[Rfam]
RNA sequence: UCCAAGGUGAAGCCCCACACCCCGGGCCCGUCCGGUGACUCGGCUCCGGCGUGGUCGCCGUCGGCCAGCGCCCCCAGGACGAGGCGGUCGCCGUAUCCGCCCUCCUGGAGUUUGCUCACCUUGCCGUGCGCGAUGAGCAGGAUCUCGUCCGCCGGCCGCCCGGCCCGCGCGAUCGUGUCGCCGGGCGCGAACUCGCGCUGCUCGAACAGCCCGGCGAGGGUGUCGAGGACGUCGCCGUCCUCGAACCCGUGCAGCAGCGGCAGCUCGGUCAGGCUCGGUGGGAUCACCCGGACCCGCGCGCCCGUGCGGGCGAAGCUCACCCGGCCGCCGCCGACCGCAUAAGUGAGCCGCCGGUUCACCCGGUAGACCCCGCCGGCGACGUCCACCCACGGGAGCACCCGCAGCAGCCACCGGGGGGAGAUCUCCCGCAUCUGCGGGGGCGUCUUGGUCGUCGUGGCGAGCGUGCGCGCCGCCGCGGUGCCGAGGCUCAGCUGCCGCUGGUCCGA
Numbered sequence: 001u002c003c004a005a006g007g008u009g010a011a012g013c014c015c016c017a018c019a020c021c022c023c024g025g026g027c028c029c030g031u032c033c034g035g036u037g038a039c040u041c042g043g044c045u046c047c048g049g050c051g052u053g054g055u056c057g058c059c060g061u062c063g064g065c066c067a068g069c070g071c072c073c074c075c076a077g078g079a080c081g082a083g084g085c086g087g088u089c090g091c092c093g094u095a096u097c098c099g100c101c102c103u104c105c106u107g108g109a110g111u112u113u114g115c116u117c118a119c120c121u122u123g124c125c126g127u128g129c130g131c132g133a134u135g136a137g138c139a140g141g142a143u144c145u146c147g148u149c150c151g152c153c154g155g156c157c158g159c160c161c162g163g164c165c166c167g168c169g170c171g172a173u174c175g176u177g178u179c180g181c182c183g184g185g186c187g188c189g190a191a192c193u194c195g196c197g198c199u200g201c202u203c204g205a206a207c208a209g210c211c212c213g214g215c216g217a218g219g220g221u222g223u224c225g226a227g228g229a230c231g232u233c234g235c236c237g238u239c240c241u242c243g244a245a246c247c248c249g250u251g252c253a254g255c256a257g258c259g260g261c262a263g264c265u266c267g268g269u270c271a272g273g274c275u276c277g278g279u280g281g282g283a284u285c286a287c288c289c290g291g292a293c294c295c296g297c298g299c300g301c302c303c304g305u306g307c308g309g310g311c312g313a314a315g316c317u318c319a320c321c322c323g324g325c326c327g328c329c330g331c332c333g334a335c336c337g338c339a340u341a342a343g344u345g346a347g348c349c350g351c352c353g354g355u356u357c358a359c360c361c362g363g364u365a366g367a368c369c370c371c372g373c374c375g376g377c378g379a380c381g382u383c384c385a386c387c388c389a390c391g392g393g394a395g396c397a398c399c400c401g402c403a404g405c406a407g408c409c410a411c412c413g414g415g416g417g418g419a420g421a422u423c424u425c426c427c428g429c430a431u432c433u434g435c436g437g438g439g440g441c442g443u444c445u446u447g448g449u450c451g452u453c454g455u456g457g458c459g460a461g462c463g464u465g466c467g468c469g470c471c472g473c474c475g476c477g478g479u480g481c482c483g484a485g486g487c488u489c490a491g492c493u494g495c496c497g498c499u500g501g502u503c504c505g506a
Base pairs, nucleotide, nucleotide: 003378006325009322018315021312027310028309029308030307031306033304034303042302043301044300046298049295051230052229055226056225057224059222060221061220062108064106077098078097079096081094083092084091085090115218116217117216119214120213123210124209126207127206128203130201131200132199135196137194140193141192146189147188151186152185153184154182155181156180157175158174161171162170163168231293232292233291237287238286241283242282246280248278250277251276253275254274255273258267259266327338328337348376349375350374352372353371354370360366388428391425392424393423394422396420398418400415402413404412434473435472436471437470439468441467442466443465444463445461446460448458449457474505475504476500477499478498480496482494484493485492